SAM riboswitch aptamer (S box leader): a 109-nucleotide RNA sequence from Arenibacter sp. NBRC 103722.
The organism belongs to Arenibacter, within Bacteria.
A search with the family's covariance model found it, with a score of 68 bits.
[Rfam]
RNA sequence: UUGUUAUCAAGAAAGGUGGAGGGAAUAGACCCUUUGAAGCCUUAGCAACCCUUUGAUCAUUUAUUAAAGAAGGUGCUAAAUUCUACCUAAAUACUGGGCCAAAUUAUUA
Numbered sequence: 001u002u003g004u005u006a007u008c009a010a011g012a013a014a015g016g017u018g019g020a021g022g023g024a025a026u027a028g029a030c031c032c033u034u035u036g037a038a039g040c041c042u043u044a045g046c047a048a049c050c051c052u053u054u055g056a057u058c059a060u061u062u063a064u065u066a067a068a069g070a071a072g073g074u075g076c077u078a079a080a081u082u083c084u085a086c087c088u089a090a091a092u093a094c095u096g097g098g099c100c101a102a103a104u105u106a107u108u109a
Stems, first nucleotide, its partner, number of pairs: 001109001003107002006104002013043005021032003026085004044077004049073002051069006081101001086098004